The family of this 161-nucleotide sequence from Ipomoea nil is "U1 spliceosomal RNA".

[Rfam]
RNA sequence: AUACUUACCUGGACGGGGUCAAUGUGCGAUCAUCAAGGCUCAUGGCCUAGGCUAGUGACCUUCAUUGCACUUUGGAGGUGCAUUAGGCUAAGGUCUACCUAAUUGGUGGAGCCUACGUCAUAAUUUGUGGCAGCGGGGGCUUGCGUUCGCGCAGCUCCUAU
Numbered sequence: 001a002u003a004c005u006u007a008c009c010u011g012g013a014c015g016g017g018g019u020c021a022a023u024g025u026g027c028g029a030u031c032a033u034c035a036a037g038g039c040u041c042a043u044g045g046c047c048u049a050g051g052c053u054a055g056u057g058a059c060c061u062u063c064a065u066u067g068c069a070c071u072u073u074g075g076a077g078g079u080g081c082a083u084u085a086g087g088c089u090a091a092g093g094u095c096u097a098c099c100u101a102a103u104u105g106g107u108g109g110a111g112c113c114u115a116c117g118u119c120a121u122a123a124u125u126u127g128u129g130g131c132a133g134c135g136g137g138g139g140c141u142u143g144c145g146u147u148c149g150c151g152c153a154g155c156u157c158c159u160a161u
Stems, first nucleotide, its partner, number of pairs: 012119004016048006023042002026039002049089002053086001055083003060078002062075002091114003094110003098106002135159004142153004
From the family's description: U1 is a small nuclear RNA (snRNA) component of the spliceosome (involved in pre-mRNA splicing). Its 5' end forms complementary base pairs with the 5' splice junction, thus defining the 5' donor site of an intron. There are significant differences in sequence and secondary structure between metazoan and yeast U1 snRNAs, the latter being much longer (568 nucleotides as compared to 164 nucleotides in human). Nevertheless, secondary structure predictions suggest that all U1 snRNAs share a 'common core' consisting of helices I, II, the proximal region of III, and IV. This family does not contain the larger yeast sequences. Its Rfam clan is "U1 clan". The match comes from Rfam's covariance-model search (128 bits).